[Rfam]
RNA sequence: UUCUUAUCAAGAGAAGUGGAGGGAAUGGCCCAAUGAAGCUUCAGCAACCAGCCAACCAUGGUCAGGUGCUAAAUCCAGCAGUUUAUCUGCAAGAUAAGAG
Numbered sequence: 001u002u003c004u005u006a007u008c009a010a011g012a013g014a015a016g017u018g019g020a021g022g023g024a025a026u027g028g029c030c031c032a033a034u035g036a037a038g039c040u041u042c043a044g045c046a047a048c049c050a051g052c053c054a055a056c057c058a059u060g061g062u063c064a065g066g067u068g069c070u071a072a073a074u075c076c077a078g079c080a081g082u083u084u085a086u087c088u089g090c091a092a093g094a095u096a097a098g099a100g
Stems, first nucleotide, its partner, number of pairs: 001100008013042005021031003026077003043070004048066002050062001052060001074092001079089003
This 100-nucleotide RNA from Shouchella clausii belongs to the Rfam family "SAM riboswitch aptamer (S box leader)". The family's consensus secondary structure is taken from published work. Lineage of the source: Bacteria > Bacillati > Bacillota > Bacilli > Shouchella clausii.